The record is a 125-nucleotide RNA sequence from Polaribacter sp. MED152, which matches "SAM riboswitch aptamer (S box leader)" in Rfam.
NCBI's taxonomy places the organism under Bacteria, Pseudomonadati, Flavobacteriales, Flavobacteriaceae, Polaribacter.
The family's consensus secondary structure is taken from published work.
RNA sequence: ACGUUAUCACGAAAGGCAGAGGGAUUAGACCCAGUGAAGCUUUGGCAACCUCUCAGAAAUGAGAAAGGUGCUACAUUCUACAAUCUAUUUCGAUAUUUUAUCAAAUAGCUAUUGACAGAUAACAG
Numbered sequence: 001a002c003g004u005u006a007u008c009a010c011g012a013a014a015g016g017c018a019g020a021g022g023g024a025u026u027a028g029a030c031c032c033a034g035u036g037a038a039g040c041u042u043u044g045g046c047a048a049c050c051u052c053u054c055a056g057a058a059a060u061g062a063g064a065a066a067g068g069u070g071c072u073a074c075a076u077u078c079u080a081c082a083a084u085c086u087a088u089u090u091c092g093a094u095a096u097u098u099u100a101u102c103a104a105a106u107a108g109c110u111a112u113u114g115a116c117a118g119a120u121a122a123c124a125g
Stems, first nucleotide, its partner, number of pairs: 003123006013043005021032003026080004044072004049068002051064004076117001081114004
Dot-bracket structure: ..((((((....(((((...(((..[[[[)))......)))))((((.((((((......))))..))))))...(]]]]((((..........................))))..)))))))..